[Rfam]
RNA sequence: GAGCAAUGAUGAAAAGGUUUUAGUACUGAAUUUUGUCACUAUGAAGGUUUCUACACUUGAUCUGAGCUCA
Numbered sequence: 001g002a003g004c005a006a007u008g009a010u011g012a013a014a015a016g017g018u019u020u021u022a023g024u025a026c027u028g029a030a031u032u033u034u035g036u037c038a039c040u041a042u043g044a045a046g047g048u049u050u051c052u053a054c055a056c057u058u059g060a061u062c063u064g065a066g067c068u069c070a
Base pairs, nucleotide, nucleotide: 001069002068003067004066013034014033015032016031018029019028

This 70-nucleotide sequence from Rattus norvegicus belongs to the Rfam family "Small nucleolar RNA U2-30". Its family is annotated with nucleolus and RNA processing in the Gene Ontology. By type it is a C/D-box small nucleolar RNA. The base pairs follow the family's consensus structure, which is taken from published work. It is one of the family's seed sequences. Taxonomically the source falls in Rattus (Eukaryota, Tetrapoda, Glires, Muridae). The family has 21 seed sequences and 664 matches in Rfam 15.1.